RNA sequence: AAACCGCCUCCUAAGUAUUGACUUUUUUGCAGUUUUGGCCUCCCAGGUCAAUUUUGACAAAGUCAAUGCACACGUGGACGCCACGUGUGUAUUUUUAUUUUAUUUUUAAUUAAAAAAAUAAUAAUAAUUUUUUUGAUAAUUAAUUAAAAAAUAAAAAAUAAAUACACAUGUGGCGUCCACGUCAGCUUUGACUUGGUCAAAUUGACCUGGGGGGUCAAAACUGUAAAAAAGUCAAUACUUAGGGGCGAUUU
Numbered sequence: 001a002a003a004c005c006g007c008c009u010c011c012u013a014a015g016u017a018u019u020g021a022c023u024u025u026u027u028u029g030c031a032g033u034u035u036u037g038g039c040c041u042c043c044c045a046g047g048u049c050a051a052u053u054u055u056g057a058c059a060a061a062g063u064c065a066a067u068g069c070a071c072a073c074g075u076g077g078a079c080g081c082c083a084c085g086u087g088u089g090u091a092u093u094u095u096u097a098u099u100u101u102a103u104u105u106u107u108a109a110u111u112a113a114a115a116a117a118a119u120a121a122u123a124a125u126a127a128u129u130u131u132u133u134u135g136a137u138a139a140u141u142a143a144u145u146a147a148a149a150a151a152u153a154a155a156a157a158a159u160a161a162a163u164a165c166a167c168a169u170g171u172g173g174c175g176u177c178c179a180c181g182u183c184a185g186c187u188u189u190g191a192c193u194u195g196g197u198c199a200a201a202u203u204g205a206c207c208u209g210g211g212g213g214g215u216c217a218a219a220a221c222u223g224u225a226a227a228a229a230a231g232u233c234a235a236u237a238c239u240u241a242g243g244g245g246c247g248a249u250u251u
Stems, first nucleotide, its partner, number of pairs: 001251002005247004012241034072182002075179020
RNA: MIR2619 microRNA precursor family